[Rfam]
RNA sequence: GCGCUCGUAGUUCGCAAACCUCCUACAUAAAAAAACUAGGUAUCU
Dot-bracket structure: ......((((.....[......))))..........]........
RNA: PreQ1 (pre queuosine) riboswitch aptamer